[Rfam]
RNA: mir-338 microRNA precursor family
RNA sequence: CCUGCAACAACAUCCUGGUGCUGCUUGAGUCCGUGUUGCAAACUCCAGCAUCAGUGAUUUUGUUGCUGG
Numbered sequence: 001c002c003u004g005c006a007a008c009a010a011c012a013u014c015c016u017g018g019u020g021c022u023g024c025u026u027g028a029g030u031c032c033g034u035g036u037u038g039c040a041a042a043c044u045c046c047a048g049c050a051u052c053a054g055u056g057a058u059u060u061u062g063u064u065g066c067u068g069g
Stems, first nucleotide, its partner, number of pairs: 006064005012058003015054009